[Rfam]
RNA sequence: UCUGGACUAAGUUCUGUGAUACACUCUGACUGUGAGUCAAUGCGAGUCAGUGCAUAACAGAACUUUGUCCCACG
Numbered sequence: 001u002c003u004g005g006a007c008u009a010a011g012u013u014c015u016g017u018g019a020u021a022c023a024c025u026c027u028g029a030c031u032g033u034g035a036g037u038c039a040a041u042g043c044g045a046g047u048c049a050g051u052g053c054a055u056a057a058c059a060g061a062a063c064u065u066u067g068u069c070c071c072a073c074g
Base pairs, nucleotide, nucleotide: 004070005069006068007067009065010064011063012062013061014060015059016058022052023051024050025049028048029047030046031045
Dot-bracket structure: ...((((.((((((((.....((((..((((.............)))))))).....)))))))).))))....